[Rfam]
Nucleotides: 329
Base pairs, nucleotide, nucleotide: 001106002105003104005098006097007096008095009094011091012090016088017087022085023084024083025082026081028079030077031076033072034071035068036067037066040065041064042063043062044060045059115171117168118167119166120137123134125133138163139162149158150157201271202270203269207265208264210262211261212260213259214258215257223252224251225250228248230246231245232244294329298324299323300322301321303317305315307313
Number, partner (000 for none) and nucleotide at each position: 001106g002105g003104a004000u005098g006097a007096g008095g009094g010000a011091g012090a013000u014000u015000u016088g017087g018000c019000u020000g021000u022085g023084a024083c025082a026081u027000a028079u029000g030077u031076c032000a033072c034071c035068u036067c037066a038000c039000u040065g041064a042063u043062c044060g045059c046000c047000a048000g049000g050000g051000u052000u053000g054000a055000u056000u057000u058000a059045g060044c061000u062043g063042a064041u065040c066037u067036g068035g069000a070000g071034g072033g073000c074000u075000a076031g077030g078000a079028a080000a081026g082025u083024g084023u085022u086000g087017c088016c089000u090012u091011c092000c093000u094009c095008u096007c097006u098005c099000a100000c101000u102000g103000c104003u105002c106001c107000a108000u109000a110000u111000g112000c113000a114000u115171c116000c117168c118167u119166c120137c121000c122000u123134a124000a125133g126000c127000u128000g129000c130000a131000c132000a133125c134123u135000c136000a137120g138163u139162u140000c141000a142000g143000a144000g145000u146000u147000c148000a149158g150157a151000c152000a153000a154000c155000c156000u157150u158149c159000c160000c161000c162139a163138a164000u165000a166119g167118a168117g169000a170000a171115g172000u173000a174000c175000u176000g177000u178000u179000a180000a181000u182000u183000g184000g185000u186000c187000a188000a189000g190000g191000g192000u193000a194000u195000a196000u197000g198000g199000u200000a201271g202270c203269u204000g205000u206000g207265c208264u209000c210262c211261c212260c213259u214258g215257c216000u217000a218000g219000g220000a221000c222000c223252u224251c225250c226000a227000a228248a229000c230246a231245a232244g233000g234000u235000u236000a237000a238000g239000g240000u241000c242000c243000a244232u245231u246230u247000u248228u249000a250225g251224g252223a253000a254000a255000a256000u257215g258214u259213a260212g261211g262210g263000u264208a265207g266000u267000c268000a269203g270202g271201c272000c273000u274000c275000c276000a277000a278000a279000a280000c281000u282000g283000c284000a285000g286000a287000c288000a289000c290000a291000u292000c293000c294329a295000a296000g297000u298324g299323a300322a301321g302000c303317a304000c305315u306000a307313c308000a309000u310000g311000a312000g313307g314000c315305a316000a317303u318000c319000u320000u321301c322300u323299u324298u325000u326000g327000a328000g329294u
The family of this 329-nucleotide RNA sequence from Eurystomus gularis is "7SK RNA". It scores 220 bits against the family's covariance model. Rfam 15.1 lists 49,373 matches to the family in 668 species. From the family's description: 7SK was discovered as an abundant small nuclear RNA in the mid-70s but a possible function has only recently been suggested. Two independent studies have found that 7SK RNA binds the CDK9/cyclin T complex (known as elongation factor P-TEFb). P-TEFb activates transcription by phosphorylating the C-terminal domain of RNA polymerase II. This process is negatively regulated by the 7SK RNP. The secondary structure of 7SK RNA shown here was proposed by Wasserman and Steitz on the basis of chemical modification and enzymatic cleavage experiments. This family contains a number of annotated pseudogenes and 7SK derived repeats. The threshold is artificially high to minimise the pseudogene count.